[Rfam]
RNA sequence: GAAGGGGAUCAGGUGAUCGCGGAGCGAAAGCUCUGAGGAAGGUCGGGGCUCCACAGGGCAGGGUGCUGGCUAACGGCCAGUCGAGGUGACUCGCAGGAAAGUGCAACAGAGAAUAGACCGCCAUCUAAGUCUAGGCAGGAACACUAAGGCUUCGGUGGUAAGGGUGAAACGGUGCGGUAAGAGCGCACCAGCAACUUCGGUGACGAAGUUGGCUUGGCAAACCCCACCCGGAGCAAGGCCAAAUUUGAGUUAGGGCUGCCCGUCCGUUACGACUCGUGGUAGGCCGCGUAGAUGGAUGAUCACCCAAGCGAAAGCUGGACAGAACCCCGCCUACAGAUCCCCUUCGCCC
Numbered sequence: 001g002a003a004g005g006g007g008a009u010c011a012g013g014u015g016a017u018c019g020c021g022g023a024g025c026g027a028a029a030g031c032u033c034u035g036a037g038g039a040a041g042g043u044c045g046g047g048g049c050u051c052c053a054c055a056g057g058g059c060a061g062g063g064u065g066c067u068g069g070c071u072a073a074c075g076g077c078c079a080g081u082c083g084a085g086g087u088g089a090c091u092c093g094c095a096g097g098a099a100a101g102u103g104c105a106a107c108a109g110a111g112a113a114u115a116g117a118c119c120g121c122c123a124u125c126u127a128a129g130u131c132u133a134g135g136c137a138g139g140a141a142c143a144c145u146a147a148g149g150c151u152u153c154g155g156u157g158g159u160a161a162g163g164g165u166g167a168a169a170c171g172g173u174g175c176g177g178u179a180a181g182a183g184c185g186c187a188c189c190a191g192c193a194a195c196u197u198c199g200g201u202g203a204c205g206a207a208g209u210u211g212g213c214u215u216g217g218c219a220a221a222c223c224c225c226a227c228c229c230g231g232a233g234c235a236a237g238g239c240c241a242a243a244u245u246u247g248a249g250u251u252a253g254g255g256c257u258g259c260c261c262g263u264c265c266g267u268u269a270c271g272a273c274u275c276g277u278g279g280u281a282g283g284c285c286g287c288g289u290a291g292a293u294g295g296a297u298g299a300u301c302a303c304c305c306a307a308g309c310g311a312a313a314g315c316u317g318g319a320c321a322g323a324a325c326c327c328c329g330c331c332u333a334c335a336g337a338u339c340c341c342c343u344u345c346g347c348c349c
Base pairs, nucleotide, nucleotide: 001345002344003343004342005341006340007339008338009337010336012304013303014302015301016300017299018298020035021034022033023032024031025030040332041331042330044329045328046327047326048325049233050232051231052230056261057260058259059258061229062228063227064226065225066080067079068078069077070076081095082093083092084091085090096224097223101222102221103218104217118163119162120159121158122157123156124155125154127152128151129150130149131148132147171189172188173187174186175185176184191213192211193210194209195208196207197206198205199204237285238284239283240282246276247275248274249273250272251271253265254264255263256262